[Rfam]
RNA sequence: CAAGUUCACUCUGGAGAGUCUUCGCAUAUGCGAAGCGCCGAAGGUGUCGCGGUUAAGUGAUCGGAUGAUCUGUGUGUAUCGUAUGGAUCGGUCCUUUCAGGUUAUGACCGCUUAUCUCUCAGGCAAAAGGACAGAGCAUACCAC
Numbered sequence: 001c002a003a004g005u006u007c008a009c010u011c012u013g014g015a016g017a018g019u020c021u022u023c024g025c026a027u028a029u030g031c032g033a034a035g036c037g038c039c040g041a042a043g044g045u046g047u048c049g050c051g052g053u054u055a056a057g058u059g060a061u062c063g064g065a066u067g068a069u070c071u072g073u074g075u076g077u078a079u080c081g082u083a084u085g086g087a088u089c090g091g092u093c094c095u096u097u098c099a100g101g102u103u104a105u106g107a108c109c110g111c112u113u114a115u116c117u118c119u120c121a122g123g124c125a126a127a128a129g130g131a132c133a134g135a136g137c138a139u140a141c142c143a144c
Stems, first nucleotide, its partner, number of pairs: 009136005020035004037124003040120002044118001046116001
The family of this 144-nucleotide RNA from Roseburia sp. CAG:50 is "Glycine riboswitch aptamer". A reference for the family is Mandal et al. (2004), "A glycine-dependent riboswitch that uses cooperative binding to control gene expression", Science. Rfam's curators write: This family represents the bacterial glycine riboswitch.